[Rfam]
A member of the RNA family "Small nucleolar RNA Z278" from Capsella rubella, 118 nucleotides long. Its family is annotated with RNA processing and nucleolus in the Gene Ontology. Rfam describes the family as follows. snoZ278 is a C/D box small nucleolar RNA. Its methylation guide targets have not been reported. A reference for the family is Chen et al. (2003), "The high diversity of snoRNAs in plants: identification and comparative study of 120 snoRNA genes from Oryza sativa", Nucleic Acids Res.
RNA sequence: GUCGAUGAUGAUAUAAUCCAAUCGUAAUGAGGUGCAGUGGAGUCGAGACCCUGUUUUACAGGGAGAACCCCUUGGCAGAAACUGCAAUUUCUAUGAUUUUAAUGGAUUUUACUGAGGC
Dot-bracket structure: (((.............................................(((((.....)))))....................................................)))